[Rfam]
The record is an 86-nucleotide sequence from Amborella trichopoda, which matches "Small nucleolar RNA Z102/R77" in Rfam. Rfam classes the family as a C/D-box small nucleolar RNA. Pairs were carried over by alignment from the consensus structure, which was predicted with PFOLD. Gene Ontology terms of the family: RNA processing and nucleolus. The match comes from Rfam's covariance-model search (77 bits). On this family, see Barneche et al., J Mol Biol 2001: "Identification of 66 box C/D snoRNAs in Arabidopsis thaliana: extensive gene duplications generated multiple isoforms predicting new ribosomal RNA 2'-O-methylation sites".
Nucleotides: 086
Stems, first nucleotide, its partner, number of pairs: 002085004039058001042057004
Number, partner (000 for none) and nucleotide at each position: 001000g002085a003084g004083u005082g006000g007000a008000g009000u010000g011000a012000u013000g014000a015000u016000u017000g018000u019000a020000u021000u022000u023000g024000a025000u026000u027000c028000c029000c030000u031000a032000u033000u034000g035000g036000u037000u038000u039058g040000a041000u042057u043056g044055c045054c046000a047000g048000u049000g050000u051000g052000a053000u054045g055044g056043c057042a058039c059000g060000c061000a062000u063000u064000a065000u066000a067000a068000u069000a070000g071000c072000u073000u074000u075000a076000u077000c078000u079000g080000a081000c082005c083004a084003c085002u086000c